[Rfam]
RNA sequence: GGUUUGUAGGCAGUGUAAUUAGCUGAUUGUCCUCUGCUGCUUACAAUCACUAACUCCACUGCCAUCAAAAC
Numbered sequence: 001g002g003u004u005u006g007u008a009g010g011c012a013g014u015g016u017a018a019u020u021a022g023c024u025g026a027u028u029g030u031c032c033u034c035u036g037c038u039g040c041u042u043a044c045a046a047u048c049a050c051u052a053a054c055u056c057c058a059c060u061g062c063c064a065u066c067a068a069a070a071c
Stems, first nucleotide, its partner, number of pairs: 003069004009063002012060004017055001019053004024049007
Dot-bracket structure: ..((((..((.((((.(.((((.(((((((............))))))))))).).)))).))..))))..

Shown here is a 71-nucleotide RNA sequence from Canis lupus, a member of the family "mir-34 microRNA precursor family". Pairs were carried over by alignment from the consensus structure, which was predicted with RNAalifold. The family is grouped with related families in Rfam's "mir-34 clan". Gene Ontology terms of the family: RISC complex and miRNA-mediated post-transcriptional gene silencing. A reference for the family is Lim et al. (2003), "Vertebrate microRNA genes", Science. Rfam's curators write: Human mir-34a was discovered computationally and later experimentally verified. The mature sequence is excised from the 5' arm of the hairpin.